[Rfam]
M-box riboswitch aptamer (ykoK leader): a 164-nucleotide RNA from Lactobacillus delbrueckii. M-box riboswitch, also know as ykoK leader is described as a metaloregulatory RNA that sense divalent metals and function as a genetic control element of genes related to divalent metal transport in bacteria. Pairs were carried over by alignment from the consensus structure. Lineage of the source: Bacteria > Bacillota > Lactobacillales > Lactobacillus delbrueckii > Lactobacillus delbrueckii subsp. bulgaricus. It is one of the family's seed sequences.

RNA sequence: CAAAUGAACUGUUAGGUGAGACUCCUACGUGAACACACGCUAUCGCCCAGAAACAUCCAGAGAUGCCAACGGGUUAAAUAGAAAUUGUCGAAAUAAGGCACUUUCCAGGUAGCUAGCAUGUGCUUACGUCACGUAGUGUUAAAGCUGAGCGAUUAGUCAAUAGC
Numbered sequence: 001c002a003a004a005u006g007a008a009c010u011g012u013u014a015g016g017u018g019a020g021a022c023u024c025c026u027a028c029g030u031g032a033a034c035a036c037a038c039g040c041u042a043u044c045g046c047c048c049a050g051a052a053a054c055a056u057c058c059a060g061a062g063a064u065g066c067c068a069a070c071g072g073g074u075u076a077a078a079u080a081g082a083a084a085u086u087g088u089c090g091a092a093a094u095a096a097g098g099c100a101c102u103u104u105c106c107a108g109g110u111a112g113c114u115a116g117c118a119u120g121u122g123c124u125u126a127c128g129u130c131a132c133g134u135a136g137u138g139u140u141a142a143a144g145c146u147g148a149g150c151g152a153u154u155a156g157u158c159a160a161u162a163g164c
Base pairs, nucleotide, nucleotide: 005160008157009156010155011150012149013096015146016145017144020140021139022138025136026135027134028133029132030131031130032129039113040112041111042110043109045074046073047072048071054065055064056063057062081105082104083103084102087099088098089097115124116123117122